[Rfam]
RNA: DUF3268 RNA
RNA sequence: UGCAGAGGCUUGCGCUCAGGCUUUCGAUACGAGAGAAGAUAUCCUCUCGUCCGACAUGUUCAGAAGAACAUGAAAUCGUUACGGAUUUAGCGCACUGAGCGAUCCACACGGCGCAAGCU
Numbered sequence: 001u002g003c004a005g006a007g008g009c010u011u012g013c014g015c016u017c018a019g020g021c022u023u024u025c026g027a028u029a030c031g032a033g034a035g036a037a038g039a040u041a042u043c044c045u046c047u048c049g050u051c052c053g054a055c056a057u058g059u060u061c062a063g064a065a066g067a068a069c070a071u072g073a074a075a076u077c078g079u080u081a082c083g084g085a086u087u088u089a090g091c092g093c094a095c096u097g098a099g100c101g102a103u104c105c106a107c108a109c110g111g112c113g114c115a116a117g118c119u
Stems, first nucleotide, its partner, number of pairs: 007119010025078004029050007055072007083105003088102001090100002